[Rfam]
RNA sequence: UAUCCUAGUGAUGAUUGAAUUUUUGAGAAUGUUAAAAGUAGUGAUUGAUUUACCCUGAAAUCAACCAUACCAUUCUGAAGGAUA
Numbered sequence: 001u002a003u004c005c006u007a008g009u010g011a012u013g014a015u016u017g018a019a020u021u022u023u024u025g026a027g028a029a030u031g032u033u034a035a036a037a038g039u040a041g042u043g044a045u046u047g048a049u050u051u052a053c054c055c056u057g058a059a060a061u062c063a064a065c066c067a068u069a070c071c072a073u074u075c076u077g078a079a080g081g082a083u084a
Base pairs, nucleotide, nucleotide: 001084002083003082004081005080006079
A member of the RNA family "Small nucleolar RNA R21" from Kalanchoe fedtschenkoi, 84 nucleotides long.
On this family, see Barneche et al., J Mol Biol 2001: "Identification of 66 box C/D snoRNAs in Arabidopsis thaliana: extensive gene duplications generated multiple isoforms predicting new ribosomal RNA 2'-O-methylation sites".
Its family is annotated with nucleolus and RNA processing in the Gene Ontology.